[Rfam]
RNA sequence: AAAGCAUAGUAAAUGCUCGCUUCUUUUUAGAAGAGGAAAGUCCGGGCUGCUAAAGACAAACAUUCCAUCUAACAGAUGGCUAGGGUAACCUAAGGGAUAGUGCAACAGAAAGAAAACUACCACGCAAGUGGAAAAGGUGAAACGGCGGGGUAAAAGCCCACCAGCGAUUUUGGUAACAAUUUCGGCUAUGUAAACCCAAUGUGCAGCAAGAAGGGAUGGUUAGCGUCUUUGUUUUAACCCUUCGCUUGAUUUUGUUUGCAAAAACAAAACUAGAUAAAUGAGCAUUCAAGACAGAACUCGGCUUAUCGCUAUGCUUUUUUA
Number, nucleotide and partner (000 for none) at each position: 001a317002a316003a315004g314005c313006a312007u311008a310009g309010u308011a306012a286013a285014u284015g283016c282017u281018c280019g000020c033021u032022u031023c030024u029025u000026u000027u000028u000029a024030g023031a022032a021033g020034a000035g000036g000037a000038a304039a303040g302041u000042c301043c300044g299045g298046g297047c206048u205049g204050c203051u000052a000053a000054a000055g233056a232057c231058a230059a000060a202061c201062a200063u199064u198065c079066c078067a077068u076069c075070u000071a000072a000073c000074a000075g069076a068077u067078g066079g065080c094081u092082a091083g090084g089085g000086u000087a000088a000089c084090c083091u082092a081093a000094g080095g197096g196097a000098u000099a000100g195101u194102g191103c190104a189105a000106c000107a000108g000109a000110a000111a000112g000113a000114a000115a000116a000117c136118u135119a000120c131121c130122a129123c128124g000125c000126a000127a000128g123129u122130g121131g120132a000133a000134a000135a118136g117137g000138u000139g000140a000141a000142a000143c000144g162145g161146c000147g159148g158149g157150g000151u000152a000153a000154a000155a000156g000157c149158c148159c147160a000161c145162c144163a000164g186165c184166g183167a182168u000169u000170u179171u178172g177173g000174u000175a000176a000177c172178a171179a170180u000181u000182u167183c166184g165185g000186c164187u000188a000189u104190g103191u102192a000193a000194a101195c100196c096197c095198a064199a063200u062201g061202u060203g050204c049205a048206g047207c000208a000209a000210g243211a242212a241213g240214g000215g000216a000217u000218g239219g238220u237221u236222a235223g234224c000225g000226u000227c000228u000229u000230u058231g057232u056233u055234u223235u222236a221237a220238c219239c218240c213241u212242u211243c210244g000245c000246u000247u000248g000249a000250u269251u268252u267253u266254g265255u264256u263257u262258g000259c000260a000261a000262a257263a256264a255265c254266a253267a252268a251269a250270c000271u000272a000273g000274a000275u000276a000277a000278a000279u000280g018281a017282g016283c015284a014285u013286u012287c000288a000289a000290g000291a000292c000293a000294g000295a000296a000297c046298u045299c044300g043301g042302c040303u039304u038305a000306u011307c000308g010309c009310u008311a007312u006313g005314c004315u003316u002317u001318u000319u000320u000321a000
RNA: Bacterial RNase P class A
Organism: Campylobacter jejuni